[Rfam]
RNA sequence: AAAGCCCUGUGGUGUACGUGAGGUCCGGUGAAAGUUUGAGCCAACACCAAUAAUAAGGGAGCCUGGGCUUUGGCAGUGGAAUGUAGGCCGUCUUUGAACGGAAACAUGAAGCUGCCAAGAGGGCACCCACGUUGUGAGGACGGGUUCAAGAACUACCGGGAAGCACGGCACUAUGGGGUUUUU
Numbered sequence: 001a002a003a004g005c006c007c008u009g010u011g012g013u014g015u016a017c018g019u020g021a022g023g024u025c026c027g028g029u030g031a032a033a034g035u036u037u038g039a040g041c042c043a044a045c046a047c048c049a050a051u052a053a054u055a056a057g058g059g060a061g062c063c064u065g066g067g068c069u070u071u072g073g074c075a076g077u078g079g080a081a082u083g084u085a086g087g088c089c090g091u092c093u094u095u096g097a098a099c100g101g102a103a104a105c106a107u108g109a110a111g112c113u114g115c116c117a118a119g120a121g122g123g124c125a126c127c128c129a130c131g132u133u134g135u136g137a138g139g140a141c142g143g144g145u146u147c148a149a150g151a152a153c154u155a156c157c158g159g160g161a162a163g164c165a166c167g168g169c170a171c172u173a174u175g176g177g178g179u180u181u182u183u
Stems, first nucleotide, its partner, number of pairs: 002181014017167003034153003037148006057128003061124004071117007083105002088101004
RNA: 6S / SsrS RNA